Source information:
Shown here is a 71-nucleotide sequence from Megalops atlanticus, a member of the family "miR-430 microRNA precursor family". The match comes from Rfam's covariance-model search (60 bits).
RNA sequence: GUUGGUACCCUAACAAAAGCAUUGACUUGUGCUUCUGAUUCAGUAAGUGCUUUAUUGUUGGGGUAGUUUCG
Numbered sequence: 001g002u003u004g005g006u007a008c009c010c011u012a013a014c015a016a017a018a019g020c021a022u023u024g025a026c027u028u029g030u031g032c033u034u035c036u037g038a039u040u041c042a043g044u045a046a047g048u049g050c051u052u053u054a055u056u057g058u059u060g061g062g063g064u065a066g067u068u069u070c071g
Base pairs, nucleotide, nucleotide: 004067006065007064008063009062010061011060013058014057015055017053018051019050020049021048022047023046025044026043027042